[Rfam]
RNA sequence: GUUGCGGUGUGGCUCAUCACCAGGCAUCUUGCGUGAUGUUGGACCCUGCUAGCUGCCUAGUGAAGGGCAACAUCGGGGC
Numbered sequence: 001g002u003u004g005c006g007g008u009g010u011g012g013c014u015c016a017u018c019a020c021c022a023g024g025c026a027u028c029u030u031g032c033g034u035g036a037u038g039u040u041g042g043a044c045c046c047u048g049c050u051a052g053c054u055g056c057c058u059a060g061u062g063a064a065g066g067g068c069a070a071c072a073u074c075g076g077g078g079c
Stems, first nucleotide, its partner, number of pairs: 005075006012068004017063004023057002028052002031049002

A member of the RNA family "mir-980 microRNA precursor family" from Cryptotermes secundus, 79 nucleotides long. The match comes from Rfam's covariance-model search (50 bits). Gene Ontology terms of the family: RISC complex and miRNA-mediated post-transcriptional gene silencing.